Annotation: Shown here is a 126-nucleotide RNA sequence from Pantoea ananatis, a member of the family "Phenylalanine leader peptide". Gene Ontology term of the family: cellular amino acid metabolic process. By type it is a cis-regulatory leader. Taxonomically the source falls in Pantoea ananatis (Bacteria, Gammaproteobacteria, Enterobacterales, Pantoea). For this family Rfam cites "Nucleotide sequence of the leader region of the phenylalanine operon of Escherichia coli" (Zurawski et al., Proc Natl Acad Sci U S A, 1978). Rfam 15.1 lists 379 matches to the family in 290 species.
RNA sequence: CAAGCAUGAAUGCUGCUAUUUUCCGUUUCUUUUUUUACUUUAGCGCCUGACAAUCAGGGGCUUUUGCGCAUAAGAAAAGAAACGAAAAAUCGCGCUGAAAGCCUCCCACGUGGAGGCUUUUUUUGU
Numbered sequence: 001c002a003a004g005c006a007u008g009a010a011u012g013c014u015g016c017u018a019u020u021u022u023c024c025g026u027u028u029c030u031u032u033u034u035u036u037a038c039u040u041u042a043g044c045g046c047c048u049g050a051c052a053a054u055c056a057g058g059g060g061c062u063u064u065u066g067c068g069c070a071u072a073a074g075a076a077a078a079g080a081a082a083c084g085a086a087a088a089a090u091c092g093c094g095c096u097g098a099a100a101g102c103c104u105c106c107c108a109c110g111u112g113g114a115g116g117c118u119u120u121u122u123u124u125g126u
Stems, first nucleotide, its partner, number of pairs: 015093002018090001020088003024084010035073003041056001057067001059065002098120009